[Rfam]
RNA: t44 RNA
Organism: Legionella rubrilucens
Nucleotides: 085
Stems, first nucleotide, its partner, number of pairs: 023075008035066008048057003
Number, partner (000 for none) and nucleotide at each position: 001000u002000a003000c004000c005000g006000c007000g008000c009000u010000u011000u012000u013000u014000a015000a016000c017000g018000a019000c020000a021000c022000a023075c024074a025073c026072g027071u028070u029069u030068c031000g032000u033000c034000a035066c036065a037064u038063g039062c040061g041060g042059u043000u044000g045000g046000g047000u048057c049056c050055c051000u052000u053000a054000u055050g056049g057048g058000u059042a060041c061040u062039g063038u064037a065036u066035g067000g068030g069029a070028a071027g072026c073025g074024u075023g076000g077000a078000g079000g080000c081000a082000u083000a084000a085000c